[Rfam]
RNA sequence: AUCACCUGGGGUCUUGUUAAAAUGCAGAUUUUUAUUCAGUAUCUCAGAGAUGAGGCCUGAGGUUCUGCAUUUUUAUCAAGCUUCCAAAUGAUGCUCA
Numbered sequence: 001a002u003c004a005c006c007u008g009g010g011g012u013c014u015u016g017u018u019a020a021a022a023u024g025c026a027g028a029u030u031u032u033u034a035u036u037c038a039g040u041a042u043c044u045c046a047g048a049g050a051u052g053a054g055g056c057c058u059g060a061g062g063u064u065c066u067g068c069a070u071u072u073u074u075a076u077c078a079a080g081c082u083u084c085c086a087a088a089u090g091a092u093g094c095u096c097a
Base pairs, nucleotide, nucleotide: 003090004089009084010083011082013080014079015078016077018075019074020072021071022070024068025067026066027065028064030062031061032060033059034058